[Rfam]
RNA sequence: ACUUUUAAAGGAUAGUAGUUAUCCAUUGGUCUUAGGAGCCAAAAACAUUGGUGCAACUCCAAAUAAAAGUA
Numbered sequence: 001a002c003u004u005u006u007a008a009a010g011g012a013u014a015g016u017a018g019u020u021a022u023c024c025a026u027u028g029g030u031c032u033u034a035g036g037a038g039c040c041a042a043a044a045a046c047a048u049u050g051g052u053g054c055a056a057c058u059c060c061a062a063a064u065a066a067a068a069g070u071a
Stems, first nucleotide, its partner, number of pairs: 001070007010024004026042005048062004
RNA: tRNA